[Rfam]
RNA sequence: ACCGCAGCGGGAGGCUCUGACGCGCGGCCCAUGCUCAGGUCGCCGGGACCGCGCCGAGCCACUGGCGAGACCGACCCGCCGUAGG
Numbered sequence: 001a002c003c004g005c006a007g008c009g010g011g012a013g014g015c016u017c018u019g020a021c022g023c024g025c026g027g028c029c030c031a032u033g034c035u036c037a038g039g040u041c042g043c044c045g046g047g048a049c050c051g052c053g054c055c056g057a058g059c060c061a062c063u064g065g066c067g068a069g070a071c072c073g074a075c076c077c078g079c080c081g082u083a084g085g
Stems, first nucleotide, its partner, number of pairs: 002084001004082002007079005013060003022054006029047001038072002040068005
RNA: c-di-GMP-II-GAG riboswitch aptamer